[Rfam]
RNA sequence: AAAGUCAUCUGUGUCGAAGGAGUAGCGAACCACGACAGCCCCGAGUCAUGCGUCGUUGCGGGCAAUCGCAGGGGCGAAGCGUUGACAGGGGAGGUGUAAGUCCAGUUUUGAGCCGCGAAAAGCCAUGAACCACUCCAGGGGGCCGAGCGAAGGCCACAUCCGGCGCCGCGAUAUCGCGAGUGGCGUCGGGCCCCUGCGCGGUCGGAGACCC
Numbered sequence: 001a002a003a004g005u006c007a008u009c010u011g012u013g014u015c016g017a018a019g020g021a022g023u024a025g026c027g028a029a030c031c032a033c034g035a036c037a038g039c040c041c042c043g044a045g046u047c048a049u050g051c052g053u054c055g056u057u058g059c060g061g062g063c064a065a066u067c068g069c070a071g072g073g074g075c076g077a078a079g080c081g082u083u084g085a086c087a088g089g090g091g092a093g094g095u096g097u098a099a100g101u102c103c104a105g106u107u108u109u110g111a112g113c114c115g116c117g118a119a120a121a122g123c124c125a126u127g128a129a130c131c132a133c134u135c136c137a138g139g140g141g142g143c144c145g146a147g148c149g150a151a152g153g154c155c156a157c158a159u160c161c162g163g164c165g166c167c168g169c170g171a172u173a174u175c176g177c178g179a180g181u182g183g184c185g186u187c188g189g190g191c192c193c194c195u196g197c198g199c200g201g202u203c204g205g206a207g208a209c210c211c
Base pairs, nucleotide, nucleotide: 012037013036014035015034016033019031020030023179025177026176039091040090041089042088045086046085047084048083049081050080051076052075053074054073056071057070058069059068060067061066109205110203112202113201114200115199116198117197136196137195138194139193140192141191142154143153144152159190160189161188162187163186164185165184166183167182168181169180
Description:
Shown here is a 211-nucleotide sequence, a member of the family "Group II catalytic intron D1-D4-6". Group II introns are found in rRNA, tRNA and mRNA of organelles in fungi, plants and protists, and also in mRNA in bacteria. The pairing is the family consensus, mapped onto this sequence. A reference for the family is Bonen and Vogel (2001), "The ins and outs of group II introns", Trends Genet. The sequence is in the family's curated seed alignment. Gene Ontology term of the family: Group II intron splicing.